Rfam assigns this 79-nucleotide RNA from Danio rerio to the family "mir-30 microRNA precursor family". Rfam's curators put it in the seed alignment. Rfam's curators write: This family consists of the mammalian microRNA (miRNA) precursor mir-30a.
RNA sequence: UUCAUGCCUGUAAACAUCCCCGACUGGAAGCUGUGCUACGCGGAAAACGAGCUUUCAGUUGGAUGUUUGCUGUCAUCGU
Numbered sequence: 001u002u003c004a005u006g007c008c009u010g011u012a013a014a015c016a017u018c019c020c021c022g023a024c025u026g027g028a029a030g031c032u033g034u035g036c037u038a039c040g041c042g043g044a045a046a047a048c049g050a051g052c053u054u055u056c057a058g059u060u061g062g063a064u065g066u067u068u069g070c071u072g073u074c075a076u077c078g079u
Base pairs, nucleotide, nucleotide: 002078004076005075006074008072010070011069012068013067014066015065016064017063018062019061023059024058025057026056027055028054029053030052031051032050